Rfam assigns this 144-nucleotide RNA sequence from Schmidtea mediterranea to the family "U4 spliceosomal RNA". Its family is annotated with U4 snRNP and spliceosomal tri-snRNP complex assembly in the Gene Ontology.
[Rfam]
RNA sequence: GUUUUUGCGCAGGUGCAAUACACCAUCAAGUGAGGAUAAUUCCGAUGAGGUGUUUUUGCUAAUUGAAAACUUUUCCCAAUACCCCGCUAUUAGUUUUACUGAUCAUAGUAAAACUUUUAGCAAUUUUUAAAGGUCCGACAAGGA
Numbered sequence: 001g002u003u004u005u006u007g008c009g010c011a012g013g014u015g016c017a018a019u020a021c022a023c024c025a026u027c028a029a030g031u032g033a034g035g036a037u038a039a040u041u042c043c044g045a046u047g048a049g050g051u052g053u054u055u056u057u058g059c060u061a062a063u064u065g066a067a068a069a070c071u072u073u074u075c076c077c078a079a080u081a082c083c084c085c086g087c088u089a090u091u092a093g094u095u096u097u098a099c100u101g102a103u104c105a106u107a108g109u110a111a112a113a114c115u116u117u118u119a120g121c122a123a124u125u126u127u128u129a130a131a132g133g134u135c136c137g138a139c140a141a142g143g144a
Base pairs, nucleotide, nucleotide: 020053021052022051023050024049026048027047028046034043035042036041086121087120088119089118092115093114094113095112096111097110098109099108100107101106134144135143136142
Annotation:
The source organism's lineage runs through Eukaryota, Opisthokonta, Protostomia, Lophotrochozoa and Schmidtea.